[Rfam]
A member of the RNA family "c-di-AMP riboswitch aptamer (ydaO/yuaA leader)" from Streptomyces sp. SID3343, 139 nucleotides long. The match comes from Rfam's covariance-model search (76 bits). Rfam describes the family as follows. This family represents a conserved RNA structure found upstream of the ydaO and yuaA genes in Bacillus subtilis and related genes in other bacteria. NCBI's taxonomy places the organism under Bacteria, Bacillati, Actinomycetes, Streptomycetaceae, Streptomyces. Pairs were carried over by alignment from the consensus structure.
RNA sequence: GACCACAGGCAGUCGAGACACGGGACCGGAACCGGGGACCCUCGCAGUCCCUUGGGGUGAAUCGGUGCUCCGGCACCGUAGGGCGCCUUCUUCCGCCCGAACCCGUCAGCUAACCCGGUAGGCGGCCGAGGAAGGAGAC
Numbered sequence: 001g002a003c004c005a006c007a008g009g010c011a012g013u014c015g016a017g018a019c020a021c022g023g024g025a026c027c028g029g030a031a032c033c034g035g036g037g038a039c040c041c042u043c044g045c046a047g048u049c050c051c052u053u054g055g056g057g058u059g060a061a062u063c064g065g066u067g068c069u070c071c072g073g074c075a076c077c078g079u080a081g082g083g084c085g086c087c088u089u090c091u092u093c094c095g096c097c098c099g100a101a102c103c104c105g106u107c108a109g110c111u112a113a114c115c116c117g118g119u120a121g122g123c124g125g126c127c128g129a130g131g132a133a134g135g136a137g138a139c
Base pairs, nucleotide, nucleotide: 003029004028031119032118033117034116035115036114041054055104056103057102063078064077065076066075081098082097083096084095